[Rfam]
RNA sequence: AAAAAGGGCUUCUGUCAUGAGUGGCACAUGCCAGGAGGCUCAUUCACUCUGUGUGCAGAAUCGACAUGAAGAGUUUUCGGAAGCAUAAUUUUUUGGUAAUCGGGCAGCUGGUGAUCGUUGGUCCCGGCGCCCUG
Numbered sequence: 001a002a003a004a005a006g007g008g009c010u011u012c013u014g015u016c017a018u019g020a021g022u023g024g025c026a027c028a029u030g031c032c033a034g035g036a037g038g039c040u041c042a043u044u045c046a047c048u049c050u051g052u053g054u055g056c057a058g059a060a061u062c063g064a065c066a067u068g069a070a071g072a073g074u075u076u077u078c079g080g081a082a083g084c085a086u087a088a089u090u091u092u093u094u095g096g097u098a099a100u101c102g103g104g105c106a107g108c109u110g111g112u113g114a115u116c117g118u119u120g121g122u123c124c125c126g127g128c129g130c131c132c133u134g
Stems, first nucleotide, its partner, number of pairs: 008084005013026005027055005034048002037045002056079001058077003062073001102132004107128005113123004
RNA: U11 spliceosomal RNA